Background:
Rfam assigns this 84-nucleotide RNA from Anaerocolumna cellulosilytica to the family "c-di-GMP-I riboswitch aptamer". Its family is annotated with cyclic-di-GMP binding in the Gene Ontology. The organism belongs to Anaerocolumna, within Bacteria. A search with the family's covariance model found it, with a score of 65 bits.
[Rfam]
RNA sequence: AAAGGAUACUAGCAAAGCUGUUGAAAAGCAGUGACGCAAAGCUAUAGGGUCUAAACCAAUACGGUAAGGCAGCCAGUUGCUAUA
Numbered sequence: 001a002a003a004g005g006a007u008a009c010u011a012g013c014a015a016a017g018c019u020g021u022u023g024a025a026a027a028g029c030a031g032u033g034a035c036g037c038a039a040a041g042c043u044a045u046a047g048g049g050u051c052u053a054a055a056c057c058a059a060u061a062c063g064g065u066a067a068g069g070c071a072g073c074c075a076g077u078u079g080c081u082a083u084a
Base pairs, nucleotide, nucleotide: 012037013036017032018031019030020029021028022027040078041077042076043075047074048073049070050069051068056064057063
Dot-bracket structure: ...........((...((((((....))))))...))..((((...(((((....((.....))...)))..))))))......